RNA sequence: GAGAAAUGAGGAUAACCAAUCAGUUCUGAGUUACCGAUGAGGACUUCAGAUCCAACUCUGAUCUCACUGCAGUG
Numbered sequence: 001g002a003g004a005a006a007u008g009a010g011g012a013u014a015a016c017c018a019a020u021c022a023g024u025u026c027u028g029a030g031u032u033a034c035c036g037a038u039g040a041g042g043a044c045u046u047c048a049g050a051u052c053c054a055a056c057u058c059u060g061a062u063c064u065c066a067c068u069g070c071a072g073u074g
Stems, first nucleotide, its partner, number of pairs: 001065004